Background
U5 spliceosomal RNA: a 120-nucleotide sequence from Pediculus humanus. It is one of the family's seed sequences. By type it is a spliceosomal small nuclear RNA. Pairs were carried over by alignment from the consensus structure, which is taken from published work. Rfam links the family to the GO terms spliceosomal tri-snRNP complex assembly and U5 snRNP. Lineage of the source: Eukaryota > Neoptera > Psocodea > Pediculus > Pediculus humanus.

[Rfam]
RNA sequence: CACCUCAUGUUUCCCUUCAUAACGAAUAAAUCUUUCGCCUUUUACUAAAGAUUUCCGUGGAGGGGAACAAUAGUGAGACUUUAGGUCAAUUUUUGUGGAGCCUGUAUAUACGUACAGGCC
Numbered sequence: 001c002a003c004c005u006c007a008u009g010u011u012u013c014c015c016u017u018c019a020u021a022a023c024g025a026a027u028a029a030a031u032c033u034u035u036c037g038c039c040u041u042u043u044a045c046u047a048a049a050g051a052u053u054u055c056c057g058u059g060g061a062g063g064g065g066a067a068c069a070a071u072a073g074u075g076a077g078a079c080u081u082u083a084g085g086u087c088a089a090u091u092u093u094u095g096u097g098g099a100g101c102c103u104g105u106a107u108a109u110a111c112g113u114a115c116a117g118g119c120c
Stems, first nucleotide, its partner, number of pairs: 004077003009068011028054008097120001100119006